[Rfam]
RNA sequence: CCGUCCGAGGGGCGCUGCAGCAGGUCGGUCGACACCGGUUUGUCAGGCUCGGAUGGGGCGUUAACCAUACGCAUCAACGGCGCCCAUUCGCA
Numbered sequence: 001c002c003g004u005c006c007g008a009g010g011g012g013c014g015c016u017g018c019a020g021c022a023g024g025u026c027g028g029u030c031g032a033c034a035c036c037g038g039u040u041u042g043u044c045a046g047g048c049u050c051g052g053a054u055g056g057g058g059c060g061u062u063a064a065c066c067a068u069a070c071g072c073a074u075c076a077a078c079g080g081c082g083c084c085c086a087u088u089c090g091c092a
Stems, first nucleotide, its partner, number of pairs: 002055007021042008
RNA: SAH (S-adenosyl-L-homocysteine) riboswitch aptamer
Organism: Ectopseudomonas mendocina